The record is a 110-nucleotide RNA sequence from Kribbella caucasensis, which matches "Guanidine-I riboswitch aptamer" in Rfam. The organism belongs to Kribbella, within Bacteria. Rfam links the family to the GO term regulation of gene expression.

RNA sequence: GCGGGGCGCCCCUAGGGUUCCGCUGCCGGCGACGGCAGGCCUGGUCCGAGAGGGGAGGCGGCGCCAGGCACCACGGCGCCGCUCCACGGCGGGACAAAAGCCCGGGAGGC
Number, nucleotide and partner (000 for none) at each position: 001g000002c000003g000004g000005g000006g000007c057008g000009c055010c054011c053012c052013u000014a000015g047016g046017g000018u000019u000020c044021c043022g041023c038024u037025g036026c035027c034028g033029g000030c000031g000032a000033c028034g027035g026036c025037a024038g023039g000040c000041c022042u000043g021044g020045u000046c016047c015048g000049a000050g000051a000052g012053g011054g010055g009056a000057g007058g082059c081060g080061g079062c078063g077064c076065c075066a000067g000068g000069c000070a000071c000072c000073a000074c000075g065076g064077c063078g062079c061080c060081g059082c058083u000084c000085c105086a000087c108088g000089g000090c000091g103092g102093g101094a000095c000096a000097a000098a000099a000100g000101c093102c092103c091104g000105g085106g000107a000108g087109g000110c000